Small nucleolar RNA snoR74: a 128-nucleotide sequence from Cicer arietinum. It scores 105 bits against the family's covariance model. A reference for the family is Marker et al. (2002), "Experimental RNomics: identification of 140 candidates for small non-messenger RNAs in the plant Arabidopsis thaliana", Curr Biol. The family has 9 seed sequences and 1,404 matches in Rfam 15.1. Rfam classes the family as an H/ACA-box small nucleolar RNA.
[Rfam]
RNA sequence: CAAAAAGCAGUGGUCUGUUGCCUUGUGAGCAGUCCUCUCGUAACCUUCAGGGAUAUAAAACCAUUGUUAUUGGGUGAACCUCAGUUCCAUUUUUUGUGAUUGAAGGUUCAGUAAAUGAUGGGACAUUU
Numbered sequence: 001c002a003a004a005a006a007g008c009a010g011u012g013g014u015c016u017g018u019u020g021c022c023u024u025g026u027g028a029g030c031a032g033u034c035c036u037c038u039c040g041u042a043a044c045c046u047u048c049a050g051g052g053a054u055a056u057a058a059a060a061c062c063a064u065u066g067u068u069a070u071u072g073g074g075u076g077a078a079c080c081u082c083a084g085u086u087c088c089a090u091u092u093u094u095u096g097u098g099a100u101u102g103a104a105g106g107u108u109c110a111g112u113a114a115a116u117g118a119u120g121g122g123a124c125a126u127u128u
Stems, first nucleotide, its partner, number of pairs: 005047003012035001015032003061121008075110007
Dot-bracket structure: ....(((....(..(((............)))..).........))).............((((((((......(((((((......................)))))))...)))))))).......